[Rfam]
RNA sequence: CACGCACAGGGCAAACUAUUUGAAAAAAUAGGACGCAAAGCCUCCGGCCUAAACCAUUUGGUAGGUAGCGGGGUUACCGAUG
Numbered sequence: 001c002a003c004g005c006a007c008a009g010g011g012c013a014a015a016c017u018a019u020u021u022g023a024a025a026a027a028a029u030a031g032g033a034c035g036c037a038a039a040g041c042c043u044c045c046g047g048c049c050u051a052a053a054c055c056a057u058u059u060g061g062u063a064g065g066u067a068g069c070g071g072g073g074u075u076a077c078c079g080a081u082g
Stems, first nucleotide, its partner, number of pairs: 001082001003079002011036002016031006034068001039075004044071003047066005

The record is an 82-nucleotide sequence from Vibrio genomosp. F6, which matches "c-di-GMP-I-GGC riboswitch aptamer" in Rfam. Gene Ontology term of the family: cyclic-di-GMP binding. The family has 40 seed sequences and 1,298 matches in Rfam 15.1. It scores 67 bits against the family's covariance model. Taxonomically the source falls in Vibrio genomosp. F6 (Bacteria, Pseudomonadati, Gammaproteobacteria, Vibrio).